[Rfam]
RNA sequence: GUCUUAUCAAGAAAAGUUGAGGGAAAUGGCCCGUUGAAGCUUUAGCAACCUGUUUUAUCGACAAGGUGCUACAUCCAUCCGCCGUCUGGCAGAAAGAUAAGUG
Numbered sequence: 001g002u003c004u005u006a007u008c009a010a011g012a013a014a015a016g017u018u019g020a021g022g023g024a025a026a027u028g029g030c031c032c033g034u035u036g037a038a039g040c041u042u043u044a045g046c047a048a049c050c051u052g053u054u055u056u057a058u059c060g061a062c063a064a065g066g067u068g069c070u071a072c073a074u075c076c077a078u079c080c081g082c083c084g085u086c087u088g089g090c091a092g093a094a095a096g097a098u099a100a101g102u103g
Stems, first nucleotide, its partner, number of pairs: 003101006013043005021032003026078004044070004049066002051063004074095001079092001081090003

SAM riboswitch aptamer (S box leader): a 103-nucleotide RNA sequence from Moheibacter lacus.